[Rfam]
RNA sequence: UGCAAUGAUGGUGUAAUUUGCGUCUGACCUUGUGAACAGCGACAGUUGCCUGCUGUCUCCAUGCUGGCACGAGAGGCUGACGAACAUGAAAUUCUGAGCA
Numbered sequence: 001u002g003c004a005a006u007g008a009u010g011g012u013g014u015a016a017u018u019u020g021c022g023u024c025u026g027a028c029c030u031u032g033u034g035a036a037c038a039g040c041g042a043c044a045g046u047u048g049c050c051u052g053c054u055g056u057c058u059c060c061a062u063g064c065u066g067g068c069a070c071g072a073g074a075g076g077c078u079g080a081c082g083a084a085c086a087u088g089a090a091a092u093u094c095u096g097a098g099c100a
Stems, first nucleotide, its partner, number of pairs: 001100003021082004030072005039064002041057005
Annotation: The record is a 100-nucleotide RNA from Megalops atlanticus, which matches "Small nucleolar RNA SNORD16" in Rfam. Its Rfam clan is "SNORD16 clan". The match comes from Rfam's covariance-model search (101 bits). The source organism's lineage runs through Eukaryota, Deuterostomia, Gnathostomata, Elopocephala and Megalops. The family has 5 seed sequences and 1,321 matches in Rfam 15.1.